[Rfam]
RNA sequence: ACCUGCUCCGGCCGCUGUUUGCGGCGUCCGGAACAUCAGACACACAGCGUGCCCCGGGAAGAACAGGGCACGUCAGAGCGUU
Numbered sequence: 001a002c003c004u005g006c007u008c009c010g011g012c013c014g015c016u017g018u019u020u021g022c023g024g025c026g027u028c029c030g031g032a033a034c035a036u037c038a039g040a041c042a043c044a045c046a047g048c049g050u051g052c053c054c055c056g057g058g059a060a061g062a063a064c065a066g067g068g069c070a071c072g073u074c075a076g077a078g079c080g081u082u
Stems, first nucleotide, its partner, number of pairs: 004035002007032005013026004049071006056064001
Notes
Rfam assigns this 82-nucleotide RNA sequence from Streptomyces sp. ISL-96 to the family "nrdJ RNA". Pairs were carried over by alignment from the consensus structure, which is taken from published work.